[Rfam]
Nucleotides: 095
Stems, first nucleotide, its partner, number of pairs: 001029002007022002010019003041050003051095003060088002069082003
Number, partner (000 for none) and nucleotide at each position: 001029c002028g003000u004000c005000a006000c007022g008021c009000a010019g011018u012017g013000g014000a015000a016000a017012c018011g019010c020000a021008g022007u023000a024000a025000c026000a027000a028002c029001g030000a031000a032000c033000g034000a035000u036000a037000a038000g039000g040000g041050u042049u043048c044000a045000g046000c047000a048043g049042a050041a051095g052094c053093c054000a055000u056000a057000g058000u059000a060088g061087u062000g063000a064000a065000g066000a067000a068000g069082u070081u071080c072000c073000g074000u075000a076000a077000u078000g079000g080071g081070a082069a083000u084000g085000g086000a087061g088060c089000g090000a091000a092000g093053g094052g095051c

Description: The record is a 95-nucleotide sequence from Holdemania filiformis, which matches "Group II catalytic intron D1-D4-1" in Rfam. NCBI's taxonomy places the organism under Bacteria, Bacillati, Bacillota, Erysipelotrichia, Holdemania. For this family Rfam cites "Control of branch-site choice by a group II intron" (Chu et al., EMBO J, 2001). Group II introns are found in rRNA, tRNA and mRNA of organelles in fungi, plants and protists, and also in mRNA in bacteria.